[Rfam]
RNA sequence: GAGAAUGAGAGUGAGAAACUUUCACGCCUUAAAGACCAAGGUUUCCUGCUGCGAUCUUAAAGUUAAUCUGAGUGGGGUUAGCCGGCACCUAAGGUAAAGCAGAAGUGCAUAGCCGAUGGAAAUCACGUUAAUAUUCGUGAGCCGUUUUUGGGUGACUUGGCUGCUUGCGGCGUUAGCUCUUAAUGGAUUGAGUGGGCGCGGCGAGCGCCAACAGGAAAAAGCCCAAAAGUUCUUUGGCCGUACCAAAACCGACGCUGGUGGUCUAGUAGAGCAUACUGAGGCGUA
Numbered sequence: 001g002a003g004a005a006u007g008a009g010a011g012u013g014a015g016a017a018a019c020u021u022u023c024a025c026g027c028c029u030u031a032a033a034g035a036c037c038a039a040g041g042u043u044u045c046c047u048g049c050u051g052c053g054a055u056c057u058u059a060a061a062g063u064u065a066a067u068c069u070g071a072g073u074g075g076g077g078u079u080a081g082c083c084g085g086c087a088c089c090u091a092a093g094g095u096a097a098a099g100c101a102g103a104a105g106u107g108c109a110u111a112g113c114c115g116a117u118g119g120a121a122a123u124c125a126c127g128u129u130a131a132u133a134u135u136c137g138u139g140a141g142c143c144g145u146u147u148u149u150g151g152g153u154g155a156c157u158u159g160g161c162u163g164c165u166u167g168c169g170g171c172g173u174u175a176g177c178u179c180u181u182a183a184u185g186g187a188u189u190g191a192g193u194g195g196g197c198g199c200g201g202c203g204a205g206c207g208c209c210a211a212c213a214g215g216a217a218a219a220a221g222c223c224c225a226a227a228a229g230u231u232c233u234u235u236g237g238c239c240g241u242a243c244c245a246a247a248a249c250c251g252a253c254g255c256u257g258g259u260g261g262u263c264u265a266g267u268a269g270a271g272c273a274u275a276c277u278g279a280g281g282c283g284u285a
Base pairs, nucleotide, nucleotide: 006024007023008022009021010020011019025283026282027281028280034263035262036261037260040244041243045076046075047074048073049072050071061069062068083240084239085238086237088119089118093114094113095112097110099108100107101106123140124139125138126137127136143236144230145229148226149225150224151223152222153221157211158210159209160208162207163206164205165204166203167199168198171194172193173192174191178187179186180185249258250257265277266276267275268274

Description
This 285-nucleotide part of an RNA from Candidatus Hodgkinia cicadicola belongs to the Rfam family "Bacterial large subunit ribosomal RNA". The sequence is in the family's curated seed alignment. The base pairs follow the family's consensus structure, which is taken from published work. Lineage of the source: Bacteria > Pseudomonadota > Alphaproteobacteria > Hyphomicrobiales > Candidatus Hodgkinia cicadicola.